RNA sequence: CGGCGGGACACCUCUCCCCAACGAGAGGCCACUAUCUGAAAGGGUAGACUAU
Dot-bracket structure: ..........((((((......))))))...((((((....)))))).....